[Rfam]
RNA sequence: AUAAGAGAUAGAGGUUGCGAAAGACAAAAGUAAUCUUGUUGAUGGGACAGGCCCAUGUGAUACAGGAUGAAAGGGGAUUUCGCCGAAGGAGAGUAGCACCUGAUGCUGCUUGUCCUGGGCAUAUGGUUAAUAGCCACAUGACUGUCAUCUAAUGCAAUGUUUGUAGUAAUAGAUGGGGAGCUAUCAUAAGA
Number, nucleotide and partner (000 for none) at each position: 001a000002u000003a000004a000005g000006a000007g185008a184009u183010a182011g181012a000013g000014g000015u000016u000017g083018c082019g081020a080021a079022a078023g000024a000025c075026a000027a000028a000029a000030g000031u000032a000033a068034u067035c066036u065037u064038g063039u062040u000041g000042a000043u000044g000045g000046g000047a000048c000049a000050g000051g000052c000053c000054c000055a000056u000057g000058u000059g000060a000061u000062a039063c038064a037065g036066g035067a034068u033069g000070a000071a000072a000073g000074g000075g025076g000077a000078u022079u021080u020081c019082g018083c017084c000085g000086a000087a116088g115089g114090a113091g111092a110093g109094u108095a107096g106097c105098a104099c000100c000101u000102g000103a000104u098105g097106c096107u095108g094109c093110u092111u091112g000113u090114c089115c088116u087117g143118g142119g000120c140121a139122u138123a000124u136125g135126g134127u133128u000129a000130a000131u000132a000133g127134c126135c125136a124137c000138a122139u121140g120141a000142c118143u117144g000145u176146c175147a174148u173149c172150u171151a170152a000153u000154g000155c000156a000157a000158u000159g000160u000161u000162u000163g000164u000165a000166g000167u000168a000169a000170u151171a150172g149173a148174u147175g146176g145177g000178g000179a000180g000181c011182u010183a009184u008185c007186a000187u000188a000189a000190g000191a000